[Rfam]
RNA: skipping-rope RNA
RNA sequence: GUCGCCCGAGGUGGUAAAUUUCGCAGCGACCACACGCCCUUGAGGUAAAAAAGAGAUGCAGGAGGAUGCUGCGCCUGCCGGGCGGC
Numbered sequence: 001g002u003c004g005c006c007c008g009a010g011g012u013g014g015u016a017a018a019u020u021u022c023g024c025a026g027c028g029a030c031c032a033c034a035c036g037c038c039c040u041u042g043a044g045g046u047a048a049a050a051a052a053g054a055g056a057u058g059c060a061g062g063a064g065g066a067u068g069c070u071g072c073g074c075c076u077g078c079c080g081g082g083c084g085g086c
Stems, first nucleotide, its partner, number of pairs: 001086008011033005024071005035053001036046003058078005